Shown here is a 162-nucleotide RNA sequence from Antrihabitans cavernicola, a member of the family "c-di-AMP riboswitch aptamer (ydaO/yuaA leader)".
RNA sequence: CACGUGGCAUCGCCUAAUCGGAACUCCUCGGAGAACCGAACCGGGAACCCAGUUUCGUUGGGGUGAAUCCCCUUUGAGGGUCGCUUGCGGCCUGAAAGGGGUAGGACUGCACUUCCCAGUCCGAACCCGUCAGCUAACUCGGUCGGCGAAUUGAUUGGAAGA
Numbered sequence: 001c002a003c004g005u006g007g008c009a010u011c012g013c014c015u016a017a018u019c020g021g022a023a024c025u026c027c028u029c030g031g032a033g034a035a036c037c038g039a040a041c042c043g044g045g046a047a048c049c050c051a052g053u054u055u056c057g058u059u060g061g062g063g064u065g066a067a068u069c070c071c072c073u074u075u076g077a078g079g080g081u082c083g084c085u086u087g088c089g090g091c092c093u094g095a096a097a098g099g100g101g102u103a104g105g106a107c108u109g110c111a112c113u114u115c116c117c118a119g120u121c122c123g124a125a126c127c128c129g130u131c132a133g134c135u136a137a138c139u140c141g142g143u144c145g146g147c148g149a150a151u152u153g154a155u156u157g158g159a160a161g162a
Base pairs, nucleotide, nucleotide: 011148012147013146014145018039019038020037040143041142042141043140044139045138050060051059061128062127063126069101070100071099072098073097074096075095104122105121106120107119